Rfam assigns this 134-nucleotide sequence from Daphnia galeata to the family "Small nucleolar RNA SNORA79". On this family, see Schattner et al., RNA 2006: "A computational screen for mammalian pseudouridylation guide H/ACA RNAs". The family's RNA type in Rfam is H/ACA-box small nucleolar RNA. Lineage of the source: Eukaryota > Protostomia > Branchiopoda > Cladocera > Daphnia. About the family: ACA65 (SNORA79) is a member of the H/ACA class of snoRNAs that guide the sites of modification of uridines to pseudouridines. This snoRNA was identified by computational screening and its expression in mouse experimentally verified by Northern blot and primer extension analysis.

[Rfam]
RNA sequence: UGACAAUGUUCCUCCGUCACGAUCAAGAUUAUGUCAUGACGGAUUUUUAGAUUGUCAAAGAACAAAAAUUUCUCUUAUUCACCCGGCUGGGAUCGGCUCACUGAUACUGGCCGGUUUUGCAGGAGAAGACAAAU
Numbered sequence: 001u002g003a004c005a006a007u008g009u010u011c012c013u014c015c016g017u018c019a020c021g022a023u024c025a026a027g028a029u030u031a032u033g034u035c036a037u038g039a040c041g042g043a044u045u046u047u048u049a050g051a052u053u054g055u056c057a058a059a060g061a062a063c064a065a066a067a068a069u070u071u072c073u074c075u076u077a078u079u080c081a082c083c084c085g086g087c088u089g090g091g092a093u094c095g096g097c098u099c100a101c102u103g104a105u106a107c108u109g110g111c112c113g114g115u116u117u118u119g120c121a122g123g124a125g126a127a128g129a130c131a132a133a134u
Stems, first nucleotide, its partner, number of pairs: 001057006007050001013043005019037001021035002071126006083114008092105005